[Rfam]
RNA sequence: GAUUUAUAAAGAAGCGUGGAGAGACAGGCUCAAAGAAGCGCUAGCAACCAUCGAAACCAAAAGUAGAAAGGUGCUAAAUCCUGAUCCCAAGAAUGUUUGCCGAGUGGCCGACAAGGGAGAAUAUAAAUU
Numbered sequence: 001g002a003u004u005u006a007u008a009a010a011g012a013a014g015c016g017u018g019g020a021g022a023g024a025c026a027g028g029c030u031c032a033a034a035g036a037a038g039c040g041c042u043a044g045c046a047a048c049c050a051u052c053g054a055a056a057c058c059a060a061a062a063g064u065a066g067a068a069a070g071g072u073g074c075u076a077a078a079u080c081c082u083g084a085u086c087c088c089a090a091g092a093a094u095g096u097u098u099g100c101c102g103a104g105u106g107g108c109c110g111a112c113a114a115g116g117g118a119g120a121a122u123a124u125a126a127a128u129u
Stems, first nucleotide, its partner, number of pairs: 001129008013042005021031003025083004043075004048071002051067002054064001079121001085117002
The record is a 129-nucleotide RNA sequence from Fulvivirga lutea, which matches "SAM riboswitch aptamer (S box leader)" in Rfam. Rfam links the family to the GO term regulation of gene expression.